[Rfam]
Shown here is a 73-nucleotide RNA sequence from Olea europaea, a member of the family "Plastid-ycf2 5UTR RNA".
Rfam 15.1 lists 3,521 matches to the family in 417 species.
The family's RNA type in Rfam is cis-regulatory element.
A reference for the family is Richter et al. (2023), "Retrograde signaling in plants: A critical review focusing on the GUN pathway and beyond", Plant Commun.
Pairs were carried over by alignment from the consensus structure, which was predicted with LocARNA.
A search with the family's covariance model found it, with a score of 68 bits.

RNA sequence: GUGCAUUCAGUAGGAAUUGAACCUACGAAUUGGCCAAUUAUGAGUUGGGCACUUUAACCAUUCAGCCUUAUCC
Numbered sequence: 001g002u003g004c005a006u007u008c009a010g011u012a013g014g015a016a017u018u019g020a021a022c023c024u025a026c027g028a029a030u031u032g033g034c035c036a037a038u039u040a041u042g043a044g045u046u047g048g049g050c051a052c053u054u055u056a057a058c059c060a061u062u063c064a065g066c067c068u069u070a071u072c073c
Stems, first nucleotide, its partner, number of pairs: 003073001005071002010026005040069001042067001044066006